Rfam assigns this 154-nucleotide RNA from Sarcophilus harrisii to the family "Small nucleolar RNA SNORA43".
Rfam describes the family as follows. ACA43 is a member of the H/ACA class of snoRNA that guide the sites of modification of uridines to pseudouridines.
The match comes from Rfam's covariance-model search (112 bits).
The organism belongs to Sarcophilus, within Eukaryota.

RNA sequence: GCUGCCUUAAACCUAUUACCAAUACAGAUACAGCUGCUGCUGCUGCAGUGCUGGGCUGUACCUGUGUCUUUAGGUAGCAAAGAGGAAGUGGCUUUUUCUACGCUCAGUGUUCAGAAAUCUGUGAGCACUAAGAAUGGUUGAUUGCCUAACAUGU
Numbered sequence: 001g002c003u004g005c006c007u008u009a010a011a012c013c014u015a016u017u018a019c020c021a022a023u024a025c026a027g028a029u030a031c032a033g034c035u036g037c038u039g040c041u042g043c044u045g046c047a048g049u050g051c052u053g054g055g056c057u058g059u060a061c062c063u064g065u066g067u068c069u070u071u072a073g074g075u076a077g078c079a080a081a082g083a084g085g086a087a088g089u090g091g092c093u094u095u096u097u098c099u100a101c102g103c104u105c106a107g108u109g110u111u112c113a114g115a116a117a118u119c120u121g122u123g124a125g126c127a128c129u130a131a132g133a134a135u136g137g138u139u140g141a142u143u144g145c146c147u148a149a150c151a152u153g154u
Stems, first nucleotide, its partner, number of pairs: 003079003006074005024065004090146003098137003103132002108127006